[Rfam]
Nucleotides: 170
Stems, first nucleotide, its partner, number of pairs: 006165002009162002011156002013095001015152003020146003025142005031136002039113005045074005054065004080104004086098003115130003
Number, partner (000 for none) and nucleotide at each position: 001000a002000u003000a004000a005000u006165g007164a008000a009162u010161u011156g012155u013095u014000a015152g016151g017150u018000g019000a020146g021145g022144c023000u024000c025142c026141u027140a028139c029138a030000u031136g032135g033000a034000u035000a036000c037000a038000c039113g040112c041111u042110g043109c044000u045074g046073c047072c048071c049070g050000g051000a052000a053000a054065c055064a056063u057062c058000g059000a060000g061000a062057g063056a064055u065054g066000c067000c068000a069000a070049u071048g072047g073046g074045u075000c076000a077000a078000c079000a080104g081103g082102u083101a084000u085000u086098a087097u088096c089000g090000g091000c092000u093000c094000a095013a096088g097087g098086u099000a100000u101083u102082a103081c104080u105000u106000a107000a108000u109043g110042c111041a112040g113039c114000u115130g116129g117128a118000c119000a120000u121000a122000c123000a124000u125000a126000u127000g128117u129116c130115u131000u132000a133000a134000g135032c136031c137000c138029u139028g140027u141026a142025g143000u144022g145021c146020u147000a148000a149000a150017a151016c152015u153000c154000a155012a156011c157000g158000a159000u160000u161010g162009a163000a164007u165006c166000u167000a168000u169000u170000c